RNA: Bacterial RNase P class A
Organism: Monoglobus pectinilyticus
RNA sequence: UGAGUAUACCAGAUGGUUGCGCGGCCUAAUCGGCCGUGAGGAAAGUCCGAGCUCCAUAGGGCAGAGUGCAAGCUAACGGCUUGUGGAGGCGACUCUAAGGACAGUGCAACAGAAAUAUACCGCCUGUUUUAAACAGGUAAGGGUGGAAAGGCGAGGUAAGAGCUCACCCAUUGAUAUGGCGACUUAUCAAUGCUGUAAACCCCACUCGGAGCAACACCUGAAUCGAAGGCUAAGCCGGCCCGGCAUCUUCGGAGAUUGGUGGCUAGAGGCGUGUGGCGACACACGUUCGAGAUAGAUAAUCAUCAUUGACAGAACUCGGCUUAUUGUAUGCUCAAUUA
Numbered sequence: 001u002g003a004g005u006a007u008a009c010c011a012g013a014u015g016g017u018u019g020c021g022c023g024g025c026c027u028a029a030u031c032g033g034c035c036g037u038g039a040g041g042a043a044a045g046u047c048c049g050a051g052c053u054c055c056a057u058a059g060g061g062c063a064g065a066g067u068g069c070a071a072g073c074u075a076a077c078g079g080c081u082u083g084u085g086g087a088g089g090c091g092a093c094u095c096u097a098a099g100g101a102c103a104g105u106g107c108a109a110c111a112g113a114a115a116u117a118u119a120c121c122g123c124c125u126g127u128u129u130u131a132a133a134c135a136g137g138u139a140a141g142g143g144u145g146g147a148a149a150g151g152c153g154a155g156g157u158a159a160g161a162g163c164u165c166a167c168c169c170a171u172u173g174a175u176a177u178g179g180c181g182a183c184u185u186a187u188c189a190a191u192g193c194u195g196u197a198a199a200c201c202c203c204a205c206u207c208g209g210a211g212c213a214a215c216a217c218c219u220g221a222a223u224c225g226a227a228g229g230c231u232a233a234g235c236c237g238g239c240c241c242g243g244c245a246u247c248u249u250c251g252g253a254g255a256u257u258g259g260u261g262g263c264u265a266g267a268g269g270c271g272u273g274u275g276g277c278g279a280c281a282c283a284c285g286u287u288c289g290a291g292a293u294a295g296a297u298a299a300u301c302a303u304c305a306u307u308g309a310c311a312g313a314a315c316u317c318g319g320c321u322u323a324u325u326g327u328a329u330g331c332u333c334a335a336u337u338a
Stems, first nucleotide, its partner, number of pairs: 001334009011324001012304007020038007043322003047319005052211004059241004064207005069083005084098001085096004099202002104200002106196003120142002122138007150168002153165003170191007178183001215261004223252006232246001234244003268287008